[Rfam]
The family of this 504-nucleotide part of an RNA from Mixia osmundae is "Eukaryotic large subunit ribosomal RNA". The organism belongs to Mixia osmundae, within Eukaryota. The sequence is in the family's curated seed alignment. Rfam links the family to the GO terms ribosome and structural constituent of ribosome. Its Rfam clan is "LSU clan". The base pairs follow the family's consensus structure, which is taken from published work.

RNA sequence: UAGAAUAAUGUAGAUAAGGGAAGUCGGCAAAUUAGAUCCGUAACUUCGGGAAAAGGAUUGGCUCAUAGGACAGGGCUCGCCGGGCCUCUGUGUUGAACGCUCGAGCUGUUCUCUGGGACUAUUCCGGCUCACGCUAGAACGGACCCGGAGGGCGGCACUUGCGAUCUGACCUUUGGUUGUCGCUCUCGGGCGACGACUGGCGAGCGAUCAACUGUCAACUAUGAACUGGUACGGACAAGGGGAAUCUGACUGUCUAAUUAAAACAUAGCAAAUCGAUGGCGCGAAAGGCGUGUUGACGAUUUGUGAUUUCUGCCCAGUGCUCUGAAUGUCAAGAUGAAGAGAUUCAAACAAGCGCGGGUAAACGGCGGGAGUAACUAUGACUCUCUUAAGGUAGCCAAAUGCCUCGUCAUCUAAUUAGUGACGCGCAUGAAUGGAUUAACGAGAUUCCCACUGUCCCUAUCUACUAUCUAGCGAAACCACAGCCAAGGGAACGGGCUUGGCAGA
Numbered sequence: 001u002a003g004a005a006u007a008a009u010g011u012a013g014a015u016a017a018g019g020g021a022a023g024u025c026g027g028c029a030a031a032u033u034a035g036a037u038c039c040g041u042a043a044c045u046u047c048g049g050g051a052a053a054a055g056g057a058u059u060g061g062c063u064c065a066u067a068g069g070a071c072a073g074g075g076c077u078c079g080c081c082g083g084g085c086c087u088c089u090g091u092g093u094u095g096a097a098c099g100c101u102c103g104a105g106c107u108g109u110u111c112u113c114u115g116g117g118a119c120u121a122u123u124c125c126g127g128c129u130c131a132c133g134c135u136a137g138a139a140c141g142g143a144c145c146c147g148g149a150g151g152g153c154g155g156c157a158c159u160u161g162c163g164a165u166c167u168g169a170c171c172u173u174u175g176g177u178u179g180u181c182g183c184u185c186u187c188g189g190g191c192g193a194c195g196a197c198u199g200g201c202g203a204g205c206g207a208u209c210a211a212c213u214g215u216c217a218a219c220u221a222u223g224a225a226c227u228g229g230u231a232c233g234g235a236c237a238a239g240g241g242g243a244a245u246c247u248g249a250c251u252g253u254c255u256a257a258u259u260a261a262a263a264c265a266u267a268g269c270a271a272a273u274c275g276a277u278g279g280c281g282c283g284a285a286a287g288g289c290g291u292g293u294u295g296a297c298g299a300u301u302u303g304u305g306a307u308u309u310c311u312g313c314c315c316a317g318u319g320c321u322c323u324g325a326a327u328g329u330c331a332a333g334a335u336g337a338a339g340a341g342a343u344u345c346a347a348a349c350a351a352g353c354g355c356g357g358g359u360a361a362a363c364g365g366c367g368g369g370a371g372u373a374a375c376u377a378u379g380a381c382u383c384u385c386u387u388a389a390g391g392u393a394g395c396c397a398a399a400u401g402c403c404u405c406g407u408c409a410u411c412u413a414a415u416u417a418g419u420g421a422c423g424c425g426c427a428u429g430a431a432u433g434g435a436u437u438a439a440c441g442a443g444a445u446u447c448c449c450a451c452u453g454u455c456c457c458u459a460u461c462u463a464c465u466a467u468c469u470a471g472c473g474a475a476a477c478c479a480c481a482g483c484c485a486a487g488g489g490a491a492c493g494g495g496c497u498u499g500g501c502a503g504a
Stems, first nucleotide, its partner, number of pairs: 001470004010464007018456003035059005044049001060227002063224006069216005075205009084177003090171001098163003103158001105156013119142002122139003126135003228232001240449007247441002251265003268304008279291004308435003312366003317363002319359004324355001327354003335346004367385006386390001406422005483500005